THF (Tetrahydrofolate) riboswitch aptamer: a 93-nucleotide sequence from Alkalicella caledoniensis. The source organism's lineage runs through Bacteria, Bacillati, Clostridia, Proteinivoracaceae and Alkalicella. Pairs were carried over by alignment from the consensus structure, which is taken from published work. A reference for the family is Trausch et al. (2011), "The structure of a tetrahydrofolate-sensing riboswitch reveals two ligand binding sites in a single aptamer", Structure. It scores 77 bits against the family's covariance model.

RNA sequence: GGCAGAGUAGAUAUCCACGCGUUAAGUGCUUAGGGAUGGGAUGUCGCCCUAAGACGAAAGGUAAUCCUGCGGUGUGGUGUCGCGUCCGCUGUC
Numbered sequence: 001g002g003c004a005g006a007g008u009a010g011a012u013a014u015c016c017a018c019g020c021g022u023u024a025a026g027u028g029c030u031u032a033g034g035g036a037u038g039g040g041a042u043g044u045c046g047c048c049c050u051a052a053g054a055c056g057a058a059a060g061g062u063a064a065u066c067c068u069g070c071g072g073u074g075u076g077g078u079g080u081c082g083c084g085u086c087c088g089c090u091g092u093c
Stems, first nucleotide, its partner, number of pairs: 001093005010081004015077005020071003026055002029053007039087005059068003